[Rfam]
RNA sequence: AUAACCUUUAAAUUUGGUCCUGUGAGGCUGAGAAGGUGAUACGGUAUAUUAGUAAAAAGCAGCAUAAGUAUAUGCAUAGCUUUGUUUUCGUACGCAAGAGCCUUUCUCAUAGGAGAAGGCUCUAUUUUUUA
Number, nucleotide and partner (000 for none) at each position: 001a000002u000003a000004a037005c036006c035007u034008u033009u032010a000011a000012a000013u000014u031015u030016g029017g028018u027019c026020c000021u000022g000023u000024g000025a000026g019027g018028c017029u016030g015031a014032g009033a008034a007035g006036g005037u004038g000039a000040u000041a000042c000043g000044g000045u000046a000047u000048a000049u000050u000051a000052g000053u084054a083055a082056a081057a000058a000059g000060c000061a000062g075063c074064a073065u072066a071067a000068g000069u000070a000071u066072a065073u064074g063075c062076a000077u000078a000079g000080c000081u056082u055083u054084g053085u000086u000087u000088u000089c000090g000091u000092a000093c000094g126095c000096a000097a123098g122099a121100g120101c119102c118103u117104u000105u116106c115107u114108c113109a000110u000111a000112g000113g108114a107115g106116a105117a103118g102119g101120c100121u099122c098123u097124a000125u000126u094127u000128u000129u000130u000131a000
Background:
This 131-nucleotide sequence from Clostridium acidisoli belongs to the Rfam family "PyrR binding site". The organism belongs to Clostridium acidisoli, within Bacteria.